The family of this 425-nucleotide sequence from Deinococcus budaensis is "Bacterial RNase P class A". Gene Ontology terms of the family: dimeric ribonuclease P complex, tRNA processing and ribonuclease P activity. By type it is a ribozyme. Lineage of the source: Bacteria > Thermotogati > Deinococci > Deinococcaceae > Deinococcus. It scores 229 bits against the family's covariance model. Pairs were carried over by alignment from the consensus structure, which is taken from published work.
[Rfam]
RNA sequence: GCGGGGGGGUUCACGGUCGCGCUCCUGCCCAGCAGGAGUGAGGAAAGUCCGGGCACCGCAGGGCAGGAUGCCAGCUAACGGCUGGUCGGCGAGCCAAGCGCCCGCGCGGGUGCCGAAAGCGCGCGGGAGGCGGCGAAGCCGAAGGACAGUGCCACAGAAACCAGACCGCCAUCCCCAUGCAGGCCCCGGCGCGGGCCGGGGGUGGUCAGGGUGAAACGGUGCGGUAAGAGCGCACCAGGCCCCCGGGAGACUGGGAGCGCUGGUAAACCCCAUCCGGUGCAAGACCCGACAGUGCGGGAGGAACGGCCCGUUCCGAUGAUCGCCAGGAUGGUCGCAUGAGGUCCGCGGCGACGCGUAUCCCAGAGAGAUGACCGUGCAGCCACGCAAGUGGUGGACAGAACCCGGCUUACAGCCCCCCCGUACCC
Numbered sequence: 001g002c003g004g005g006g007g008g009g010u011u012c013a014c015g016g017u018c019g020c021g022c023u024c025c026u027g028c029c030c031a032g033c034a035g036g037a038g039u040g041a042g043g044a045a046a047g048u049c050c051g052g053g054c055a056c057c058g059c060a061g062g063g064c065a066g067g068a069u070g071c072c073a074g075c076u077a078a079c080g081g082c083u084g085g086u087c088g089g090c091g092a093g094c095c096a097a098g099c100g101c102c103c104g105c106g107c108g109g110g111u112g113c114c115g116a117a118a119g120c121g122c123g124c125g126g127g128a129g130g131c132g133g134c135g136a137a138g139c140c141g142a143a144g145g146a147c148a149g150u151g152c153c154a155c156a157g158a159a160a161c162c163a164g165a166c167c168g169c170c171a172u173c174c175c176c177a178u179g180c181a182g183g184c185c186c187c188g189g190c191g192c193g194g195g196c197c198g199g200g201g202g203u204g205g206u207c208a209g210g211g212u213g214a215a216a217c218g219g220u221g222c223g224g225u226a227a228g229a230g231c232g233c234a235c236c237a238g239g240c241c242c243c244c245g246g247g248a249g250a251c252u253g254g255g256a257g258c259g260c261u262g263g264u265a266a267a268c269c270c271c272a273u274c275c276g277g278u279g280c281a282a283g284a285c286c287c288g289a290c291a292g293u294g295c296g297g298g299a300g301g302a303a304c305g306g307c308c309c310g311u312u313c314c315g316a317u318g319a320u321c322g323c324c325a326g327g328a329u330g331g332u333c334g335c336a337u338g339a340g341g342u343c344c345g346c347g348g349c350g351a352c353g354c355g356u357a358u359c360c361c362a363g364a365g366a367g368a369u370g371a372c373c374g375u376g377c378a379g380c381c382a383c384g385c386a387a388g389u390g391g392u393g394g395a396c397a398g399a400a401c402c403c404g405g406c407u408u409a410c411a412g413c414c415c416c417c418c419c420g421u422a423c424c425c
Base pairs, nucleotide, nucleotide: 001421002420003419004418005417006416007415008414009413010412012376013375014374015373016372017371018370020040021039022038023037024036025035026034027033028032045408046407047406049405050404051403052402053401054279055278056277057276061309062308063307064306066275067274068273069272070271071085072084073083074082075081086143087141088140089139090138144270145269149268150267151264152263153262166210167209168206169205170204171203172202173201174200175199176198218236219235220234221233222232223231238260239258240257242255243254244253245252246251283333284332285331286330294323295322296321297320300314301313302312303311304310340359341358342357344355345354346353347352